The record is a 114-nucleotide sequence from Thermoflexibacter ruber, which matches "SAM riboswitch aptamer (S box leader)" in Rfam. Its family is annotated with regulation of gene expression in the Gene Ontology. The SAM riboswitch is found upstream of a number of genes which code for proteins involved in methionine or cysteine biosynthesis in Gram-positive bacteria. Lineage of the source: Bacteria > Cytophagia > Cytophagales > Thermoflexibacteraceae > Thermoflexibacter.
[Rfam]
RNA sequence: GGUUUAUAAAGAACGAAGCGAGAGAACAGGCUCUAAGACCUUCUGGCAACCUCUGAUUCAUCUACUCAAAUAGAACGGUGCCAAAUCCUGUCCAAUUUUUGGAUAAUAUAAACU
Numbered sequence: 001g002g003u004u005u006a007u008a009a010a011g012a013a014c015g016a017a018g019c020g021a022g023a024g025a026a027c028a029g030g031c032u033c034u035a036a037g038a039c040c041u042u043c044u045g046g047c048a049a050c051c052u053c054u055g056a057u058u059c060a061u062c063u064a065c066u067c068a069a070a071u072a073g074a075a076c077g078g079u080g081c082c083a084a085a086u087c088c089u090g091u092c093c094a095a096u097u098u099u100u101g102g103a104u105a106a107u108a109u110a111a112a113c114u
Base pairs, nucleotide, nucleotide: 001114002113003112004111005110006109007108008107013044015043016042017041018040022033023032024031027090028089029088030087045082046081047080048079050078051077052074053073054072055071086106091103092102093101094100095099